[Rfam]
Nucleotides: 137
Stems, first nucleotide, its partner, number of pairs: 003135008017029003031117002033106002035049004044104002052082002086102005108120003
Number, partner (000 for none) and nucleotide at each position: 001000c002000g003135c004134u005133a006132u007131u008130c009129u010128c011000a012000g013000g014000g015000c016000a017029g018028g019027g020000u021000g022000g023000a024000a025000u026000u027019c028018c029017c030000u031117a032116c033106c034105g035049g036048u037047g038046g039000u040000u041000a042000c043000a044104g045103u046038c047037c048036a049035c050000g051000a052082g053081c054000g055000g056000c057000c058000u059000u060000u061000g062000c063000c064000c065000c066000g067000a068000u069000g070000c071000a072000g073000a074000g075000g076000u077000g078000u079000c080000a081053g082052c083000a084000g085000a086102c087101c088100c089099g090098g091000c092000g093000a094000a095000a096000u097000u098090c099089c100088g101087g102086g103045a104044c105034c106033g107000a108120c109119g110118g111000u112000c113000a114000a115000a116032g117031u118110c119109c120108g121000g122000a123000u124000g125000g126000a127000a128010g129009a130008g131007a132006a133005u134004g135003g136000a137000g

The family of this 137-nucleotide sequence from Tritonibacter horizontis is "FMN riboswitch aptamer (RFN element)". The base pairs follow the family's consensus structure, which is taken from published work. Lineage of the source: Bacteria > Pseudomonadati > Pseudomonadota > Alphaproteobacteria > Tritonibacter. The RFN element is a highly conserved domain that is found frequently in the 5'-untranslated regions of prokaryotic mRNAs that encode for flavin mononucleotide (FMN) biosynthesis and transport proteins. It scores 114 bits against the family's covariance model.